Rfam assigns this 187-nucleotide sequence from Desulforamulus ferrireducens to the family "Lysine riboswitch aptamer". Its family is annotated with lysine biosynthetic process in the Gene Ontology.
RNA sequence: AGGUGAGGUAGAGGUCGCGGAGUAUUAAGAGUAUCCAGGAGGAGACGGGGAAAAUCUAUGAGCCCUGGGGAAAGGAAUAUCCGCCGAAGCGUUUGAGUUUCCCACUCAAAUAGCUGGGGUUGCAUCGAAUAGGUGCAGCACUGUCACAGGAAACCGCCUAAUUUUCCUGUGGAGAACUAUCUUACUA
Numbered sequence: 001a002g003g004u005g006a007g008g009u010a011g012a013g014g015u016c017g018c019g020g021a022g023u024a025u026u027a028a029g030a031g032u033a034u035c036c037a038g039g040a041g042g043a044g045a046c047g048g049g050g051a052a053a054a055u056c057u058a059u060g061a062g063c064c065c066u067g068g069g070g071a072a073a074g075g076a077a078u079a080u081c082c083g084c085c086g087a088a089g090c091g092u093u094u095g096a097g098u099u100u101c102c103c104a105c106u107c108a109a110a111u112a113g114c115u116g117g118g119g120u121u122g123c124a125u126c127g128a129a130u131a132g133g134u135g136c137a138g139c140a141c142u143g144u145c146a147c148a149g150g151a152a153a154c155c156g157c158c159u160a161a162u163u164u165u166c167c168u169g170u171g172g173a174g175a176a177c178u179a180u181c182u183u184a185c186u187a
Stems, first nucleotide, its partner, number of pairs: 006182006017084005023079004034069006088115003091111008116142002119139008144172010
The literature on the family includes a 2003 paper in Cell by Mandal et al., "Riboswitches Control Fundamental Biochemical Pathways in Bacillus subtilis and Other Bacteria". The match comes from Rfam's covariance-model search (122 bits).